RNA sequence: AAUGUAAUAAGGCAAACCUAUAGAAAUAUAGGGACGCAAAGCUAAAGGGACUAAGGUUCAUGACUAUGUCAGCCAGCUGCCAAA
Numbered sequence: 001a002a003u004g005u006a007a008u009a010a011g012g013c014a015a016a017c018c019u020a021u022a023g024a025a026a027u028a029u030a031g032g033g034a035c036g037c038a039a040a041g042c043u044a045a046a047g048g049g050a051c052u053a054a055g056g057u058u059c060a061u062g063a064c065u066a067u068g069u070c071a072g073c074c075a076g077c078u079g080c081c082a083a084a
Stems, first nucleotide, its partner, number of pairs: 012037002017032006040078004047074002049070003056064003

The record is an 84-nucleotide RNA from Paenibacillus antarcticus, which matches "c-di-GMP-I riboswitch aptamer" in Rfam.
NCBI's taxonomy places the organism under Bacteria, Bacillati, Caryophanales, Paenibacillaceae, Paenibacillus.